About this RNA: This 109-nucleotide sequence from Paraliobacillus ryukyuensis belongs to the Rfam family "PyrR binding site". For this family Rfam cites "Molecular recognition of pyr mRNA by the Bacillus subtilis attenuation regulatory protein PyrR" (Bonner et al., Nucleic Acids Res, 2001). The organism belongs to Paraliobacillus, within Bacteria. It scores 69 bits against the family's covariance model. Pairs were carried over by alignment from the consensus structure, which is taken from published work.

RNA sequence: UAAACCUUUAAUUAAGUCCAGAGAGGCUUGCAAGGUUGUCAAAGGAUACGUGAAAUCAAUUUUUUCUACACGUGCACCUCUUUGCGACUUUGCAAAGAGGUUUUUUAUU
Numbered sequence: 001u002a003a004a005c006c007u008u009u010a011a012u013u014a015a016g017u018c019c020a021g022a023g024a025g026g027c028u029u030g031c032a033a034g035g036u037u038g039u040c041a042a043a044g045g046a047u048a049c050g051u052g053a054a055a056u057c058a059a060u061u062u063u064u065u066c067u068a069c070a071c072g073u074g075c076a077c078c079u080c081u082u083u084g085c086g087a088c089u090u091u092g093c094a095a096a097g098a099g100g101u102u103u104u105u106u107a108u109u
Base pairs, nucleotide, nucleotide: 003037004036005035006034007033008032013030014029015028016027017026018025044071047068048067050065052063053062054061055060074103076101077100078099079098080097081096082095083094084093085092086091